[Rfam]
RNA sequence: CUACCAACACCGGGAGGUGUUGGGAUGCGUAUGCAGAAGUCAGCAGACGGCGUAGUAGGUUGGGGGCAAAGGCGGUGAGCCGAGGAGACCUCCGACUGAAGGCC
Numbered sequence: 001c002u003a004c005c006a007a008c009a010c011c012g013g014g015a016g017g018u019g020u021u022g023g024g025a026u027g028c029g030u031a032u033g034c035a036g037a038a039g040u041c042a043g044c045a046g047a048c049g050g051c052g053u054a055g056u057a058g059g060u061u062g063g064g065g066g067c068a069a070a071g072g073c074g075g076u077g078a079g080c081c082g083a084g085g086a087g088a089c090c091u092c093c094g095a096c097u098g099a100a101g102g103c104c
Base pairs, nucleotide, nucleotide: 001027004023005022006021007020008019009018010017011016039048040047041046049104050103051102058097059096060095061094062093063092064091065090066089

Group II catalytic intron D1-D4-1: a 104-nucleotide RNA sequence from Paraburkholderia steynii.
The match comes from Rfam's covariance-model search (63 bits).
About the family: Group II introns are found in rRNA, tRNA and mRNA of organelles in fungi, plants and protists, and also in mRNA in bacteria.